Small nucleolar RNA SNORA73 family: a 205-nucleotide RNA from Microcebus murinus.
NCBI's taxonomy places the organism under Eukaryota, Metazoa, Teleostomi, Mammalia, Microcebus.
U17 (SNORA73A and SNORA73B) also known as E1 belongs to the H/ACA class of small nucleolar RNAs (snoRNAs). Vertebrate U17 is intron-encoded and ranges in length from 200-230 nucleotides, longer than most snoRNAs.
Clan: snR30-U17 clan.
The family's consensus secondary structure is taken from published work.
Rfam classes the family as an H/ACA-box small nucleolar RNA.
RNA sequence: CAAACGUGGAUACCCUGGGAGGUCACUCUACCCAGGCUCUGUCCAGGUGGCAUAGGAUAGCAUAGGGCUCUGCCCCGUGAUGUGCAGUCCCUUUUCCACAAAGUUGGAGAUAAAGCUGGGCUUUGUGUCUGUGUCUUCAUAUUCCUACAACUUCCCAGAGUCCUGUGGAUAAUGACUGGGGAGAAAAACCAUGCAAGAAACAUGU
Number, nucleotide and partner (000 for none) at each position: 001c107002a000003a105004a104005c103006g000007u101008g044009g043010a042011u041012a040013c000014c036015c035016u034017g000018g029019g028020a027021g026022g000023u000024c000025a000026c021027u020028c019029u018030a000031c000032c000033c000034a016035g015036g014037c000038u000039c000040u012041g011042u010043c009044c008045a000046g000047g099048u098049g097050g096051c000052a000053u000054a000055g000056g091057a000058u000059a088060g085061c000062a083063u082064a081065g078066g000067g000068c000069u000070c000071u000072g000073c000074c000075c000076c000077g000078u065079g000080a000081u064082g063083u062084g000085c060086a000087g000088u059089c000090c000091c056092u000093u000094u000095u000096c050097c049098a048099c047100a000101a007102a000103g005104u004105u003106g000107g001108a000109g000110a000111u000112a000113a000114a000115g000116c000117u000118g000119g000120g000121c000122u000123u000124u000125g000126u000127g000128u000129c000130u000131g000132u000133g000134u000135c197136u195137u000138c193139a192140u191141a000142u000143u000144c000145c000146u000147a000148c000149a000150a000151c183152u182153u181154c180155c179156c178157a000158g000159a000160g170161u169162c168163c167164u000165g000166u000167g163168g162169a161170u160171a000172a000173u000174g000175a000176c000177u000178g156179g155180g154181g153182a152183g151184a000185a000186a000187a000188a000189c000190c000191a140192u139193g138194c000195a136196a000197g135198a000199a000200a000201c000202a000203u000204g000205u000